[Rfam]
RNA sequence: GCGGGCAUAGUUUAGUGGUAAAACUACAGUCUUCCAAACUGUUGAUGCGAGUUCGAUUCUCGCUGCCCGCU
Numbered sequence: 001g002c003g004g005g006c007a008u009a010g011u012u013u014a015g016u017g018g019u020a021a022a023a024c025u026a027c028a029g030u031c032u033u034c035c036a037a038a039c040u041g042u043u044g045a046u047g048c049g050a051g052u053u054c055g056a057u058u059c060u061c062g063c064u065g066c067c068c069g070c071u
Stems, first nucleotide, its partner, number of pairs: 001070007010024004026042005047063005